[Rfam]
Rfam assigns this 108-nucleotide RNA sequence from Plutella xylostella to the family "mir-8517 microRNA precursor family". Rfam links the family to the GO terms RISC complex and miRNA-mediated post-transcriptional gene silencing. The family's consensus secondary structure was predicted with RNAalifold.
RNA sequence: UUGCGGGACGUUUUGACUGGUGAACUGUUUUGUCCCUCUCCAACAAAGAACAAUUUGUUCUUUGACAGAGAGGGACGAAACAGUUUAUCGGUUAGAGCGUUUUGUGGC
Numbered sequence: 001u002u003g004c005g006g007g008a009c010g011u012u013u014u015g016a017c018u019g020g021u022g023a024a025c026u027g028u029u030u031u032g033u034c035c036c037u038c039u040c041c042a043a044c045a046a047a048g049a050a051c052a053a054u055u056u057g058u059u060c061u062u063u064g065a066c067a068g069a070g071a072g073g074g075a076c077g078a079a080a081c082a083g084u085u086u087a088u089c090g091g092u093u094a095g096a097g098c099g100u101u102u103u104g105u106g107g108c
Base pairs, nucleotide, nucleotide: 001107002106003105004104005103006102011097012096013095014094015093016092017091018090019089020088021087022086023085024084025083026082027081028080029069030068031067032066033065034064049059050058051057052056